[Rfam]
Shown here is a 37-nucleotide RNA sequence from Amazona guildingii, a member of the family "Prion pseudoknot". Its family is annotated with translation in the Gene Ontology. The organism belongs to Amazona, within Eukaryota. Rfam classes the family as a cis-regulatory element. From the family's description: This family represents a predicted pseudoknot structure found in prion protein mRNA. It has been suggested that the family has a possible effect in prion protein translation. For this family Rfam cites "Pseudoknots in prion protein mRNAs confirmed by comparative sequence analysis and pattern searching" (Barrette et al., Nucleic Acids Res, 2001). The family has 148 seed sequences and 421 matches in Rfam 15.1.
RNA sequence: CCAUGGUGGUGGUUGGGCUCCCCAUGGUGGUGGUUGG
Numbered sequence: 001c002c003a004u005g006g007u008g009g010u011g012g013u014u015g016g017g018c019u020c021c022c023c024a025u026g027g028u029g030g031u032g033g034u035u036g037g
Stems, first nucleotide, its partner, number of pairs: 001027006